[Rfam]
RNA sequence: CAGGGUACCCUCCGACCCUACUUAGUUCAACCAAAUGAACUAAACUUUCAAAAAUGAAGUAAAUUAUGAAAUUUUAGUUCAUUUAGUUGAACUAAAGAGGGUCGGAGGGUACCCUC
Numbered sequence: 001c002a003g004g005g006u007a008c009c010c011u012c013c014g015a016c017c018c019u020a021c022u023u024a025g026u027u028c029a030a031c032c033a034a035a036u037g038a039a040c041u042a043a044a045c046u047u048u049c050a051a052a053a054a055u056g057a058a059g060u061a062a063a064u065u066a067u068g069a070a071a072u073u074u075u076a077g078u079u080c081a082u083u084u085a086g087u088u089g090a091a092c093u094a095a096a097g098a099g100g101g102u103c104g105g106a107g108g109g110u111a112c113c114c115u116c
Stems, first nucleotide, its partner, number of pairs: 002115018022095010033084011

Shown here is a 116-nucleotide RNA sequence from Triticum aestivum, a member of the family "MIR5070 microRNA precursor family".
Pairs were carried over by alignment from the consensus structure, which was predicted with RNAalifold.
The family is grouped with related families in Rfam's "MIR2863 microRNA precursor clan".
Rfam links the family to the GO terms RISC complex and miRNA-mediated post-transcriptional gene silencing.